[Rfam]
RNA: Group II catalytic intron D1-D4-3
RNA sequence: UGAGGAGUGAUCUUCGCAGUGAAGGAAGCAGGACUGUAAAAUCCGGUACUGACGAACAGGAACGGCAUAAGAGGCUAUAUAAAGUGGAUAAGCGUGCACAGCAACGUAACGUCCAAAUAGUAACAAAAUUUUAUAUAGUAGAUGUCGCAGUGAUUGGAGGAAGGAAACGGCU
Dot-bracket structure: ((((((....))))))...........(...(....(....((((((((((...........((((((.....(((.(((((((.((((..((((........))))...))))..............))))))).)))..))))))))))).))))).....)...)...)